[Rfam]
RNA sequence: GGGGCGUUAGCUCAGCCGGUUAGAGCAGCGGACUCAUAAUCCGCCCGUCGCGGGUUCGAGCCCCGCACGCCCCA
Numbered sequence: 001g002g003g004g005c006g007u008u009a010g011c012u013c014a015g016c017c018g019g020u021u022a023g024a025g026c027a028g029c030g031g032a033c034u035c036a037u038a039a040u041c042c043g044c045c046c047g048u049c050g051c052g053g054g055u056u057c058g059a060g061c062c063c064c065g066c067a068c069g070c071c072c073c074a
Stems, first nucleotide, its partner, number of pairs: 001073007010026004028044005050066005
Overview:
The family of this 74-nucleotide RNA sequence from Tessaracoccus flavus is "tRNA". A search with the family's covariance model found it, with a score of 69 bits. Lineage of the source: Bacteria > Actinomycetota > Propionibacteriales > Propionibacteriaceae > Tessaracoccus. It is annotated as a transfer RNA.